Shown here is a 112-nucleotide RNA sequence from Halalkalibacter krulwichiae, a member of the family "SAM riboswitch aptamer (S box leader)". The base pairs follow the family's consensus structure, which is taken from published work. Rfam links the family to the GO term regulation of gene expression. Taxonomically the source falls in Halalkalibacter (Bacteria, Bacillati, Caryophanales, Bacillaceae). A search with the family's covariance model found it, with a score of 92 bits.
RNA sequence: UUCUUAUCCAGAGUGGUAGAGGGACAGGCCCUAUGAAACCCGGCAACCAUCAAGUCAACAUACUUGAACGGUGCUAAAUCCUGCAAAGGUUGUAACCUUUGAAAGAUGAGAG
Numbered sequence: 001u002u003c004u005u006a007u008c009c010a011g012a013g014u015g016g017u018a019g020a021g022g023g024a025c026a027g028g029c030c031c032u033a034u035g036a037a038a039c040c041c042g043g044c045a046a047c048c049a050u051c052a053a054g055u056c057a058a059c060a061u062a063c064u065u066g067a068a069c070g071g072u073g074c075u076a077a078a079u080c081c082u083g084c085a086a087a088g089g090u091u092g093u094a095a096c097c098u099u100u101g102a103a104a105g106a107u108g109a110g111a112g
Stems, first nucleotide, its partner, number of pairs: 001112008013041001015040003021031003025083004042075004047071002050067004079104001084101006